[Rfam]
The family of this 135-nucleotide RNA sequence from Paraburkholderia phytofirmans is "Guanidine-I riboswitch aptamer".
It is one of the family's seed sequences.
This family represents a conserved RNA structure found upstream of the ykkC and yxkD genes in Bacillus subtilis and related genes in other bacteria. The function of this family is unclear although it has been suggested that it may function to switch on efflux pumps and detoxification systems in response to harmful environmental molecules.
Rfam links the family to the GO term regulation of gene expression.
Lineage of the source: Bacteria > Pseudomonadati > Betaproteobacteria > Burkholderiaceae > Paraburkholderia phytofirmans.
RNA sequence: CUUCAGGAUCGCUAGGGUUCCGGUUGUGCGCAGAUCAAUGCGCACGAUGUCUGGUCCGAGAGCAAUCCGGUCUUGCCGUUCACCUUCUUUCAAGGCGCCGGCGAGGCUCCACGGAGGGAUAAAAGCCCGGGAGGU
Numbered sequence: 001c002u003u004c005a006g007g008a009u010c011g012c013u014a015g016g017g018u019u020c021c022g023g024u025u026g027u028g029c030g031c032a033g034a035u036c037a038a039u040g041c042g043c044a045c046g047a048u049g050u051c052u053g054g055u056c057c058g059a060g061a062g063c064a065a066u067c068c069g070g071u072c073u074u075g076c077c078g079u080u081c082a083c084c085u086u087c088u089u090u091c092a093a094g095g096c097g098c099c100g101g102c103g104a105g106g107c108u109c110c111a112c113g114g115a116g117g118g119a120u121a122a123a124a125g126c127c128c129g130g131g132a133g134g135u
Stems, first nucleotide, its partner, number of pairs: 007067003011063002015057002020054002022051001023048010069108010110130001112133001116128003